About this RNA:
The record is an 88-nucleotide RNA from Oryza meridionalis, which matches "mir-395 microRNA precursor family" in Rfam. Pairs were carried over by alignment from the consensus structure, which was predicted with PFOLD. Its family is annotated with RISC complex and miRNA-mediated post-transcriptional gene silencing in the Gene Ontology. The match comes from Rfam's covariance-model search (57 bits). mir-395 was identified in both Arabidopsis thaliana and Oryza sativa computationally and was later experimentally verified. mir-395 is thought to target mRNAs coding for ATP sulphurylases.
[Rfam]
RNA sequence: AUAUUAUCGUAGGUUCCCUUCAAUCACUUCACGUGGCACUAUUUUAAGGCCUACUUUAUGAAGUAUUUGGAGGAACUCUCGGUGUCAC
Numbered sequence: 001a002u003a004u005u006a007u008c009g010u011a012g013g014u015u016c017c018c019u020u021c022a023a024u025c026a027c028u029u030c031a032c033g034u035g036g037c038a039c040u041a042u043u044u045u046a047a048g049g050c051c052u053a054c055u056u057u058a059u060g061a062a063g064u065a066u067u068u069g070g071a072g073g074a075a076c077u078c079u080c081g082g083u084g085u086c087a088c
Stems, first nucleotide, its partner, number of pairs: 005084005012077006019070002022068002026064006033057001035055002